[Rfam]
This 86-nucleotide sequence from Flavobacterium humi belongs to the Rfam family "Flavo-1 RNA". By type it is a small RNA. The family has 201 seed sequences and 7,497 matches in Rfam 15.1. NCBI's taxonomy places the organism under Bacteria, Bacteroidota, Flavobacteriales, Flavobacteriaceae, Flavobacterium.

RNA sequence: UUGCAGCCCAGAUAGAGCCGAUAUCCUUGUUAUGGCUGUUGUGGCAACACAGCCAUAACAAGAUAAAGGCGAAAGCUGGAAAAGCU
Numbered sequence: 001u002u003g004c005a006g007c008c009c010a011g012a013u014a015g016a017g018c019c020g021a022u023a024u025c026c027u028u029g030u031u032a033u034g035g036c037u038g039u040u041g042u043g044g045c046a047a048c049a050c051a052g053c054c055a056u057a058a059c060a061a062g063a064u065a066a067a068g069g070c071g072a073a074a075g076c077u078g079g080a081a082a083a084g085c086u
Stems, first nucleotide, its partner, number of pairs: 009078003013074001018069002023064003029059011